The record is a 51-nucleotide RNA sequence from Grimontia hollisae, which matches "L31-Gammaproteobacteria ribosomal protein leader" in Rfam. The family's RNA type in Rfam is cis-regulatory leader. The source organism's lineage runs through Bacteria, Pseudomonadati, Pseudomonadota, Vibrionales and Grimontia hollisae. Rfam's curators put it in the seed alignment. For this family Rfam cites "Discovery of 20 novel ribosomal leader candidates in bacteria and archaea" (Eckert and Weinberg, BMC Microbiol, 2020). The base pairs follow the family's consensus structure, which is taken from published work. The family is grouped with related families in Rfam's "Ribosomal Protein L31 Leader clan".
RNA sequence: CGUGUGGUGCCCGAUAGGCUCGGGAGAGCGACACGGCCUUAGAUUAGAGGU
Number, nucleotide and partner (000 for none) at each position: 001c035002g034003u033004g032005u031006g000007g029008u028009g000010c024011c023012c022013g021014a020015u000016a000017g000018g000019c000020u014021c013022g012023g011024g010025a000026g000027a000028g008029c007030g000031a005032c004033a003034c002035g001036g000037c000038c000039u000040u000041a000042g000043a000044u000045u000046a000047g000048a000049g000050g000051u000